RNA: Plant small nucleolar RNA U3
RNA sequence: AUGGCCUUACUUGAACAUGAUCUAUUCUAUAGGUUUGUGCCUCUGUGUCCUUGAGUUCUAAGGAUACAGGAACCAACGUCCGGUGGAUGAAGCAUGGCCGUGCGACCAAAGCGUGAGUAGAGGCUUCGUCAGCCUCCCGGGGUCUCCGGUUGCAGCGAAGGAUCGUUCUUAGCUCCCAUAAUUGGGGUUCUGGGGUGGUUGCACGACGUUCUGACAAAAA
Numbered sequence: 001a002u003g004g005c006c007u008u009a010c011u012u013g014a015a016c017a018u019g020a021u022c023u024a025u026u027c028u029a030u031a032g033g034u035u036u037g038u039g040c041c042u043c044u045g046u047g048u049c050c051u052u053g054a055g056u057u058c059u060a061a062g063g064a065u066a067c068a069g070g071a072a073c074c075a076a077c078g079u080c081c082g083g084u085g086g087a088u089g090a091a092g093c094a095u096g097g098c099c100g101u102g103c104g105a106c107c108a109a110a111g112c113g114u115g116a117g118u119a120g121a122g123g124c125u126u127c128g129u130c131a132g133c134c135u136c137c138c139g140g141g142g143u144c145u146c147c148g149g150u151u152g153c154a155g156c157g158a159a160g161g162a163u164c165g166u167u168c169u170u171a172g173c174u175c176c177c178a179u180a181a182u183u184g185g186g187g188u189u190c191u192g193g194g195g196u197g198g199u200u201g202c203a204c205g206a207c208g209u210u211c212u213g214a215c216a217a218a219a220a
Stems, first nucleotide, its partner, number of pairs: 001038002003035001005033003013027003017023001043069004048064006079218001082215001097207001099205010110167004120156001123153002127149001128147001132143004169193004175187003